[Rfam]
RNA sequence: UGACCUAUACAAAAGGGUAUAGGUGUUGGAGAUUGUUGUCAAGAACUUUGCAAAGAUUUCUUUCGAUAUGUCUUUG
Number, nucleotide and partner (000 for none) at each position: 001u000002g000003a024004c023005c022006u021007a020008u019009a018010c017011a000012a000013a000014a000015g000016g000017g010018u009019a008020u007021a006022g005023g004024u003025g000026u000027u000028g000029g000030a000031g000032a000033u000034u000035g000036u000037u000038g000039u000040c000041a000042a000043g000044a000045a000046c000047u000048u000049u000050g000051c000052a000053a000054a000055g071056a000057u000058u000059u068060c000061u066062u000063u000064c000065g000066a061067u000068a059069u000070g000071u055072c000073u000074u000075u000076g000
RT-6 RNA: a 76-nucleotide sequence from Bianquea renquensis.
By type it is a small RNA.